Rfam assigns this 134-nucleotide sequence from Paenibacillus algicola to the family "c-di-AMP riboswitch aptamer (ydaO/yuaA leader)". This family represents a conserved RNA structure found upstream of the ydaO and yuaA genes in Bacillus subtilis and related genes in other bacteria.
[Rfam]
RNA sequence: UUCAUUAAUAUGCCGAAUUUCGAUAUAGAAAACGGGGGAACCACUGCCGGGUGAAUUAUUCUUGUUUGAGAGGGAAUAUAGGGGACCCUUAACCGAACCCUUAGCUAACUCCGUAGGCACCGAAGGGAGCACUA
Dot-bracket structure: ..........((((...(((........)))((((((...........(((.....(((((((........)))))))..((..........))...)))........)))))).))))...............